[Rfam]
RNA sequence: UCAUAUCCUCGUUAGGCGAGGCUCCUAUACGAACAUAGGCCACUGCCCGGAAAUAUCGAAAGAUGCCAAUGGGUAGAACAGGAAUUGUCGGAUUAAGGCUCUUCUUAAGGUGGCUAAGGGAUUUCCCUUUACGUCGUAUAGUGCCAAAACUGGACUAGGGGGACUGAU
Numbered sequence: 001u002c003a004u005a006u007c008c009u010c011g012u013u014a015g016g017c018g019a020g021g022c023u024c025c026u027a028u029a030c031g032a033a034c035a036u037a038g039g040c041c042a043c044u045g046c047c048c049g050g051a052a053a054u055a056u057c058g059a060a061a062g063a064u065g066c067c068a069a070u071g072g073g074u075a076g077a078a079c080a081g082g083a084a085u086u087g088u089c090g091g092a093u094u095a096a097g098g099c100u101c102u103u104c105u106u107a108a109g110g111u112g113g114c115u116a117a118g119g120g121a122u123u124u125c126c127c128u129u130u131a132c133g134u135c136g137u138a139u140a141g142u143g144c145c146a147a148a149a150c151u152g153g154a155c156u157a158g159g160g161g162g163a164c165u166g167a168u
Base pairs, nucleotide, nucleotide: 006163007162008161009160010159011155012154013096015151016150020145021144022143025141026140027139028138029137030136031135032134039114040113041112042111043110045074046073047072048071049070054065055064056063057062081105082104083103084102087099088098089097116129117128118127
RNA: M-box riboswitch aptamer (ykoK leader)